[Rfam]
RNA sequence: ACAAAACAAGGCCAAAACUCGAAUGGAGAGUUUGCUUCGCAAACUCCCGAUCAUGAGUGCGGGGGACAUGAAACACCGCGCGGCAACGCCGCGCUUGGGGUGAGUCGCGCAUGACCGCGCGUAGGGUUGUACUCCCAGCCCGAACCCGACAGCUAACCUCGCCGGCCGCACAAGGAGGAUUU
Numbered sequence: 001a002c003a004a005a006a007c008a009a010g011g012c013c014a015a016a017a018c019u020c021g022a023a024u025g026g027a028g029a030g031u032u033u034g035c036u037u038c039g040c041a042a043a044c045u046c047c048c049g050a051u052c053a054u055g056a057g058u059g060c061g062g063g064g065g066a067c068a069u070g071a072a073a074c075a076c077c078g079c080g081c082g083g084c085a086a087c088g089c090c091g092c093g094c095u096u097g098g099g100g101u102g103a104g105u106c107g108c109g110c111a112u113g114a115c116c117g118c119g120c121g122u123a124g125g126g127u128u129g130u131a132c133u134c135c136c137a138g139c140c141c142g143a144a145c146c147c148g149a150c151a152g153c154u155a156a157c158c159u160c161g162c163c164g165g166c167c168g169c170a171c172a173a174g175g176a177g178g179a180u181u182u
Stems, first nucleotide, its partner, number of pairs: 010167004017058005059162006067097002098147003106121004124141004
Dot-bracket structure: .........((((...(((((................................)))))((((((..((...........................))(((.....((((........))))..((((..........))))...))).........)))))).))))...............
This 182-nucleotide RNA from Cohnella candida belongs to the Rfam family "c-di-AMP riboswitch aptamer (ydaO/yuaA leader)". The organism belongs to Cohnella, within Bacteria.